Nucleotides: 130
Stems, first nucleotide, its partner, number of pairs: 005048001007046001011037002015033001017031001062124009077112007
Number, partner (000 for none) and nucleotide at each position: 001000a002000a003000a004000a005048a006000u007046g008000c009000a010000g011037g012036g013000u014000u015033c016000a017031g018000u019000u020000g021000u022000c023000u024000a025000u026000g027000u028000g029000a030000g031017c032000a033015g034000u035000c036012c037011u038000c039000u040000c041000g042000a043000u044000a045000c046007c047000u048005u049000c050000a051000g052000g053000g054000a055000u056000a057000u058000a059000g060000u061000a062124u063123c064122c065121a066120u067119u068118g069117u070116u071000u072000u073000u074000g075000g076000g077112u078111g079110a080109a081108c082107c083106u084000g085000u086000g087000u088000a089000c090000c091000g092000u093000g094000u095000c096000u097000g098000u099000g100000a101000c102000u103000g104000a105000a106083g107082g108081g109080u110079u111078c112077a113000g114000u115000a116070a117069a118068u119067g120066a121065u122064g123063g124062a125000a126000g127000a128000u129000g130000a